[Rfam]
RNA: Small nucleolar RNA SNORA8
Organism: Anser brachyrhynchus
RNA sequence: UAUGCUGCAAGACGUGUGUACCCAGCAGUGUCUUUCUGAUGAUGUAUUCAAAAAGCAGCACUGCAGUGUUUCAGCUGCUGACGUCGUGGUUUUCAGGUGGACAUGCUGAUUUAACUUGGUGUUCCUGUUGAAACAAGU
Numbered sequence: 001u002a003u004g005c006u007g008c009a010a011g012a013c014g015u016g017u018g019u020a021c022c023c024a025g026c027a028g029u030g031u032c033u034u035u036c037u038g039a040u041g042a043u044g045u046a047u048u049c050a051a052a053a054a055g056c057a058g059c060a061c062u063g064c065a066g067u068g069u070u071u072c073a074g075c076u077g078c079u080g081a082c083g084u085c086g087u088g089g090u091u092u093u094c095a096g097g098u099g100g101a102c103a104u105g106c107u108g109a110u111u112u113a114a115c116u117u118g119g120u121g122u123u124c125c126u127g128u129u130g131a132a133a134c135a136a137g138u
Stems, first nucleotide, its partner, number of pairs: 003060005015054001017052001018047004024040001026038003064127003068123001070121001071119004080107001082105003